The family of this 67-nucleotide RNA from Saccharopolyspora montiporae is "Actino-pnp RNA".
RNA sequence: GCCGGUCCUCGGUAGUGGCUCCCGGGCACGUCCUCGACGCGCCCGAGGGCUUCGAUCGAUGGCCGGC
Numbered sequence: 001g002c003c004g005g006u007c008c009u010c011g012g013u014a015g016u017g018g019c020u021c022c023c024g025g026g027c028a029c030g031u032c033c034u035c036g037a038c039g040c041g042c043c044c045g046a047g048g049g050c051u052u053c054g055a056u057c058g059a060u061g062g063c064c065g066g067c
Stems, first nucleotide, its partner, number of pairs: 001067007009059005017051005023045005029039004
Rfam classes the family as a cis-regulatory element.